[Rfam]
RNA: drz-agam-1 ribozyme
RNA sequence: AACAUACCAAACCCUAUCUCCACCUCCACGUGGUGACUGCUGGGAGCUCUUUCUUAACAAAAAGCUGCAAAUGGAGGAGG
Numbered sequence: 001a002a003c004a005u006a007c008c009a010a011a012c013c014c015u016a017u018c019u020c021c022a023c024c025u026c027c028a029c030g031u032g033g034u035g036a037c038u039g040c041u042g043g044g045a046g047c048u049c050u051u052u053c054u055u056a057a058c059a060a061a062a063a064g065c066u067g068c069a070a071a072u073g074g075a076g077g078a079g080g
Base pairs, nucleotide, nucleotide: 013080014079015078017076019074020073022034023033024032045066046065047064048063050061051060052059